Rfam assigns this 158-nucleotide RNA sequence from Arthrobacter sp. ISL-30 to the family "c-di-AMP riboswitch aptamer (ydaO/yuaA leader)". It scores 54 bits against the family's covariance model. NCBI's taxonomy places the organism under Bacteria, Bacillati, Actinomycetota, Micrococcaceae, Arthrobacter. This family represents a conserved RNA structure found upstream of the ydaO and yuaA genes in Bacillus subtilis and related genes in other bacteria.
[Rfam]
RNA sequence: ACAUCCCGGAGCCCCAACACUGAGGCAGAGACGGGGGACCCACGAGUCUUCGGGCCGCUUGAUAGCGGCCCUUGGGGUGAAGCCGUCACGUCUGACGUGCGGCCGGUUGACCUCUUCCGAACCCGACAGCUAACUCCGCAGGCGUUGAGAGGCAACCA
Numbered sequence: 001a002c003a004u005c006c007c008g009g010a011g012c013c014c015c016a017a018c019a020c021u022g023a024g025g026c027a028g029a030g031a032c033g034g035g036g037g038a039c040c041c042a043c044g045a046g047u048c049u050u051c052g053g054g055c056c057g058c059u060u061g062a063u064a065g066c067g068g069c070c071c072u073u074g075g076g077g078u079g080a081a082g083c084c085g086u087c088a089c090g091u092c093u094g095a096c097g098u099g100c101g102g103c104c105g106g107u108u109g110a111c112c113u114c115u116u117c118c119g120a121a122c123c124c125g126a127c128a129g130c131u132a133a134c135u136c137c138g139c140a141g142g143c144g145u146u147g148a149g150a151g152g153c154a155a156c157c158a
Stems, first nucleotide, its partner, number of pairs: 004144001006142002012030001014028001032138005041074002075124003083102004105118002